[Rfam]
RNA sequence: CCGCUCUCGUGCCCUUAUCACUUUUCCAGCCCAGCUUCUGCACCUGACUGUUGGACGGAGAACUGAUAAGGGUAUGCGGGUGA
Numbered sequence: 001c002c003g004c005u006c007u008c009g010u011g012c013c014c015u016u017a018u019c020a021c022u023u024u025u026c027c028a029g030c031c032c033a034g035c036u037u038c039u040g041c042a043c044c045u046g047a048c049u050g051u052u053g054g055a056c057g058g059a060g061a062a063c064u065g066a067u068a069a070g071g072g073u074a075u076g077c078g079g080g081u082g083a
Stems, first nucleotide, its partner, number of pairs: 012072009022062006030054002